[Rfam]
RNA sequence: GCGAUCGUAGCUCAGUUGGUUAGAGCAUCGGUUUGUGGUACCGAGGGUCGCGGGUUCAAGUCCCGUCGAUCGCC
Dot-bracket structure: (((((((..((((.........)))).(((((.......))))).....(((((.......)))))))))))).
The record is a 74-nucleotide RNA sequence from Sphingomonas adhaesiva, which matches "tRNA" in Rfam. A search with the family's covariance model found it, with a score of 68 bits. Gene Ontology term of the family: triplet codon-amino acid adaptor activity. The organism belongs to Sphingomonas, within Bacteria. Rfam classes the family as a transfer RNA. Rfam describes the family as follows. Transfer RNA (tRNA) molecules are approximately 80 nucleotides in length. Their secondary structure includes four short double-helical elements and three loops (D, anti-codon, and T loops). Further hydrogen bonds mediate the characteristic L-shaped molecular structure. tRNAs have two regions of fundamental functional importance: the anti-codon, which is responsible for specific mRNA codon recognition, and the 3' end, to which the tRNAs corresponding amino acid is attached (by aminoacyl-tRNA synthetases). tRNAs cope with the degeneracy of the genetic code in two manners: having more than one tRNA (with a specific anti-codon) for a particular amino acid; and 'wobble' base-pairing, i.e. permitting non-standard base-pairing at the 3rd anti-codon position.